[Rfam]
RNA sequence: AUCUUAUCACGAGAGACGGAGGGAAAGGCCCGAUGAAGUCUCAGCAACCAACCAAUAAGGUCAGGUGCUAAUUCCUGCGCAUUUGUUCGCGCAAAGAUAAGAA
Number, nucleotide and partner (000 for none) at each position: 001a000002u102003c101004u100005u099006a098007u097008c096009a000010c000011g000012a000013g042014a041015g040016a039017c038018g000019g000020a000021g031022g030023g029024a000025a000026a076027g075028g074029c023030c022031c021032g000033a000034u000035g000036a000037a000038g017039u016040c015041u014042c013043a069044g068045c067046a066047a000048c065049c064050a000051a061052c060053c059054a000055a000056u000057a000058a000059g053060g052061u051062c000063a000064g049065g048066u046067g045068c044069u043070a000071a000072u000073u095074c028075c027076u026077g092078c091079g090080c089081a000082u000083u000084u000085g000086u000087u000088c000089g080090c079091g078092c077093a000094a000095a073096g008097a007098u006099a005100a004101g003102a002103a000
The record is a 103-nucleotide RNA from Alteribacter keqinensis, which matches "SAM riboswitch aptamer (S box leader)" in Rfam. NCBI's taxonomy places the organism under Bacteria, Bacillota, Bacilli, Bacillaceae, Alteribacter. The family's consensus secondary structure is taken from published work.